Rfam assigns this 49-nucleotide RNA sequence from Streptomyces globosus to the family "L31-Actinobacteria ribosomal protein leader". The base pairs follow the family's consensus structure, which is taken from published work. By type it is a cis-regulatory leader. Taxonomically the source falls in Streptomyces (Bacteria, Actinomycetota, Kitasatosporales, Streptomycetaceae). A search with the family's covariance model found it, with a score of 48 bits.

RNA sequence: UCGGCCCCGGUUCACGCAGUGCGCAAUUCCGCCCCUGCGACCCGGCGCC
Numbered sequence: 001u002c003g004g005c006c007c008c009g010g011u012u013c014a015c016g017c018a019g020u021g022c023g024c025a026a027u028u029c030c031g032c033c034c035c036u037g038c039g040a041c042c043c044g045g046c047g048c049c
Stems, first nucleotide, its partner, number of pairs: 003049003007045004015039004019034001021032002